[Rfam]
RNA sequence: GAUGGCUGACACUCCUUUCUUAACUCAUGUUGCUGUGCCUUUUUUUCUCCCCUACAAUUGUAUGAGUUGAGUAGAGAGUGUCAGUCUA
Number, nucleotide and partner (000 for none) at each position: 001g000002a000003u000004g086005g085006c084007u083008g082009a081010c080011a079012c078013u077014c000015c000016u000017u000018u000019c071020u070021u069022a068023a067024c066025u065026c064027a063028u062029g000030u000031u000032g000033c000034u056035g055036u054037g053038c000039c000040u000041u000042u000043u000044u000045u000046u000047c000048u000049c000050c000051c000052c000053u037054a036055c035056a034057a000058u000059u000060g000061u000062a028063u027064g026065a025066g024067u023068u022069g021070a020071g019072u000073a000074g000075a000076g000077a013078g012079u011080g010081u009082c008083a007084g006085u005086c004087u000088a000
Shown here is an 88-nucleotide RNA from Pelusios castaneus, a member of the family "mir-1426 microRNA precursor family". Its family is annotated with RISC complex and miRNA-mediated post-transcriptional gene silencing in the Gene Ontology. The organism belongs to Pelusios, within Eukaryota. Pairs were carried over by alignment from the consensus structure, which was predicted with RNAalifold. It scores 80 bits against the family's covariance model.